A member of the RNA family "Plastid-ycf2 5UTR RNA" from Prunus persica, 71 nucleotides long. About the family: Plastid ycf2 is a non-coding RNA (ncRNA) recognised in plastids. The family has 204 seed sequences and 3,521 matches in Rfam 15.1. Rfam classes the family as a cis-regulatory element. For this family Rfam cites "Retrograde signaling in plants: A critical review focusing on the GUN pathway and beyond" (Richter et al., Plant Commun, 2023). A search with the family's covariance model found it, with a score of 69 bits.

[Rfam]
RNA sequence: AUUAAACCAGUAGGAAUUGAGCCUACAAAUUUGCCAAUUAUGAGUUGAGCGCUUAAACCAUUCAGCCAUAG
Numbered sequence: 001a002u003u004a005a006a007c008c009a010g011u012a013g014g015a016a017u018u019g020a021g022c023c024u025a026c027a028a029a030u031u032u033g034c035c036a037a038u039u040a041u042g043a044g045u046u047g048a049g050c051g052c053u054u055a056a057a058c059c060a061u062u063c064a065g066c067c068a069u070a071g
Stems, first nucleotide, its partner, number of pairs: 007071001010026005040069003044066006051059001